[Rfam]
Record summary:
The record is a 216-nucleotide sequence from Pediculus humanus, which matches "Small nucleolar RNA U3" in Rfam. Clan: U3 clan. On this family, see Zwieb, Nucleic Acids Res 1997: "The uRNA database". The sequence is in the family's curated seed alignment. Gene Ontology terms of the family: nucleolus and RNA processing. About the family: Small nucleolar RNAs (snoRNAs) are involved in the processing and modification of rRNA in the nucleolus. There are two main classes of snoRNAs: the box C/D class, and the box H/ACA class. U3 snoRNA is a member of the box C/D class. Indeed, the box C/D element is a subset of the six short sequence elements found in all U3 snoRNAs, namely boxes A, A', B, C, C', and D. The U3 snoRNA secondary structure is characterised by a small 5' domain (with boxes A and A'), and a larger 3' domain (with boxes B, C, C', and D), the two domains being linked by a single-stranded hinge. Boxes B and C form the B/C motif, which appears to be exclusive to U3 snoRNAs, and boxes C' and D form the C'/D motif. The latter is functionally similar to the C/D motifs found in other snoRNAs. The 5' domain and the hinge region act as a pre-rRNA-binding domain. The 3' domain has conserved protein-binding sites. Both the box B/C and box C'/D motifs are sufficient for nuclear retention of U3 snoRNA. The box C'/D motif is also necessary for nucleolar localisation, stability and hyper-methylation of U3 snoRNA. Both box B/C and C'/D motifs are involved in specific protein interactions and are necessary for the rRNA processing functions of U3 snoRNA. The family's RNA type in Rfam is C/D-box small nucleolar RNA.

RNA sequence: AAGAUCAUACUUUUCAGGAUCAUUUCUGUAGUAUGAAUAAUCUUUUGAAGUCGUAGACUUCUGCGCACCAAAACCAUGAUGACGAUUCAUGACAUCUGCGCCUGAGCGUGAGGCAGGCUAUCGUUGAUCUUGUUUAAGGAUCGACUUUAGUCAUCGAUGACCGUUCACCACGGGAGCUCGUCUCUUGUGGGAGGGUGUGGAUGUGAUCUGAGUGGG
Number, nucleotide and partner (000 for none) at each position: 001a041002a000003g000004a038005u037006c035007a034008u033009a032010c031011u030012u000013u000014u000015c028016a027017g026018g025019a024020u000021c000022a000023u000024u019025u018026c017027u016028g015029u000030a011031g010032u009033a008034u007035g006036a000037a005038u004039a000040a000041u001042c000043u000044u000045u000046u000047g000048a000049a000050g000051u000052c065053g064054u063055a062056g061057a000058c000059u000060u000061c056062u055063g054064c053065g052066c000067a000068c000069c000070a000071a000072a000073a000074c215075c214076a213077u212078g000079a000080u000081g000082a000083c000084g000085a000086u000087u000088c000089a000090u000091g000092a204093c203094a202095u201096c200097u199098g198099c197100g196101c195102c000103u194104g000105a000106g164107c163108g162109u000110g000111a000112g000113g000114c000115a000116g152117g151118c150119u149120a148121u000122c000123g145124u000125u000126g142127a141128u140129c139130u138131u000132g000133u000134u000135u000136a000137a000138g130139g129140a128141u127142c126143g000144a000145c123146u000147u000148u120149a119150g118151u117152c116153a000154u000155c000156g000157a000158u000159g000160a000161c000162c108163g107164u106165u000166c000167a000168c190169c000170a188171c187172g186173g185174g184175a183176g182177c000178u000179c000180g000181u000182c176183u175184c174185u173186u172187g171188u170189g000190g168191g000192a000193g000194g103195g101196u100197g099198u098199g097200g096201a095202u094203g093204u092205g000206a000207u000208c000209u000210g000211a000212g077213u076214g075215g074216g000